[Rfam]
RNA sequence: ACGCGCUGGCGGGGCUCGGUGAAAGUCCGAACCGGCGGUGACCCGGCCUGUACGGCCGGCAGCCCGCUACCCGGUCACAUCCAGUGACCGGUGGAUCCGGUGAAAUUCCGGAGCCGACGGUGAAAGUCCGGAUGGGAGGCAGCGCGC
Numbered sequence: 001a002c003g004c005g006c007u008g009g010c011g012g013g014g015c016u017c018g019g020u021g022a023a024a025g026u027c028c029g030a031a032c033c034g035g036c037g038g039u040g041a042c043c044c045g046g047c048c049u050g051u052a053c054g055g056c057c058g059g060c061a062g063c064c065c066g067c068u069a070c071c072c073g074g075u076c077a078c079a080u081c082c083a084g085u086g087a088c089c090g091g092u093g094g095a096u097c098c099g100g101u102g103a104a105a106u107u108c109c110g111g112a113g114c115c116g117a118c119g120g121u122g123a124a125a126g127u128c129c130g131g132a133u134g135g136g137a138g139g140c141a142g143c144g145c146g147c
Stems, first nucleotide, its partner, number of pairs: 003145006010138001017029003031127002033116002035067004062114002071091002096112005118130003
Shown here is a 147-nucleotide RNA sequence from Planosporangium mesophilum, a member of the family "FMN riboswitch aptamer (RFN element)". The match comes from Rfam's covariance-model search (100 bits). Pairs were carried over by alignment from the consensus structure, which is taken from published work.